RNA sequence: CGGCCACGUCUUUCACUCGGAUCGUCCGGCACGUUCCUGCCGGUGAAAGGGAGUACAU
Numbered sequence: 001c002g003g004c005c006a007c008g009u010c011u012u013u014c015a016c017u018c019g020g021a022u023c024g025u026c027c028g029g030c031a032c033g034u035u036c037c038u039g040c041c042g043g044u045g046a047a048a049g050g051g052a053g054u055a056c057a058u
Stems, first nucleotide, its partner, number of pairs: 009050007026043006
Rfam assigns this 58-nucleotide RNA sequence from Planosporangium mesophilum to the family "msiK RNA". It scores 57 bits against the family's covariance model. The base pairs follow the family's consensus structure, which is taken from published work.